[Rfam]
Record summary: A member of the RNA family "Streptomyces sRNA scr5239" from Streptomyces benahoarensis, 195 nucleotides long. Lineage of the source: Bacteria > Actinomycetota > Kitasatosporales > Streptomycetaceae > Streptomyces. A reference for the family is Vockenhuber et al. (2015), "Identification of metE as a second target of the sRNA scr5239 in Streptomyces coelicolor", PLoS One. Rfam classes the family as a small RNA. Rfam links the family to the GO terms mRNA binding and negative regulation of translation.

RNA sequence: CUUCCGCCCUCCCCGCACAGGAGGGUGGAUCGAGACCGGCGCGUUCUCUGCCCUGACUACGCAACGGUCUCCGAUCGACCGGUUCCCGGGCGGGCGCCACCCCUACCGCACUCGGGGUGCCCGACCGCCCUACGGAACCGGCCGAUGUAGCUCCGGGCUGCGGUGCCGGACAGGCUGAGGGUCCUGUCCCGGCGC
Numbered sequence: 001c002u003u004c005c006g007c008c009c010u011c012c013c014c015g016c017a018c019a020g021g022a023g024g025g026u027g028g029a030u031c032g033a034g035a036c037c038g039g040c041g042c043g044u045u046c047u048c049u050g051c052c053c054u055g056a057c058u059a060c061g062c063a064a065c066g067g068u069c070u071c072c073g074a075u076c077g078a079c080c081g082g083u084u085c086c087c088g089g090g091c092g093g094g095c096g097c098c099a100c101c102c103c104u105a106c107c108g109c110a111c112u113c114g115g116g117g118u119g120c121c122c123g124a125c126c127g128c129c130c131u132a133c134g135g136a137a138c139c140g141g142c143c144g145a146u147g148u149a150g151c152u153c154c155g156g157g158c159u160g161c162g163g164u165g166c167c168g169g170a171c172a173g174g175c176u177g178a179g180g181g182u183c184c185u186g187u188c189c190c191g192g193c194g195c
Stems, first nucleotide, its partner, number of pairs: 003029004008024005032071005038065001041062001043060002045056002077142001079140001081138001084135001150164003154160002168189007